Overview
Shown here is a 136-nucleotide RNA sequence from Syrrhaptes paradoxus, a member of the family "Small nucleolar RNA SNORA31". It is annotated as an H/ACA-box small nucleolar RNA. The match comes from Rfam's covariance-model search (50 bits). ACA31 (SNORA31) belongs to the H/ACA class of snoRNAs which are thought to guide the sites of modification of uridines to pseudouridines. ACA31 is predicted to guide the pseudouridylation of U3713 in 28S rRNA and U218 in 18S rRNA. This family includes the mouse homologue snoMBI-161. Its family is annotated with RNA processing and nucleolus in the Gene Ontology.
RNA sequence: AUGCAUCUGUUUGACAGACCUUGGGUAAACGGCCGUUGCUUCUCUGGUUCUUGCUGAGAUGUAACAGUAAUGGGUUCCUUGUGCUUUCUACCUGCCUGACCUCGUGGCAGUCUGGAUUGAGUAAAGGAACACAAAC
Numbered sequence: 001a002u003g004c005a006u007c008u009g010u011u012u013g014a015c016a017g018a019c020c021u022u023g024g025g026u027a028a029a030c031g032g033c034c035g036u037u038g039c040u041u042c043u044c045u046g047g048u049u050c051u052u053g054c055u056g057a058g059a060u061g062u063a064a065c066a067g068u069a070a071u072g073g074g075u076u077c078c079u080u081g082u083g084c085u086u087u088c089u090a091c092c093u094g095c096c097u098g099a100c101c102u103c104g105u106g107g108c109a110g111u112c113u114g115g116a117u118u119g120a121g122u123a124a125a126g127g128a129a130c131a132c133a134a135a136c
Stems, first nucleotide, its partner, number of pairs: 002063007012053002017049004023041006076128005084119001087116004092110005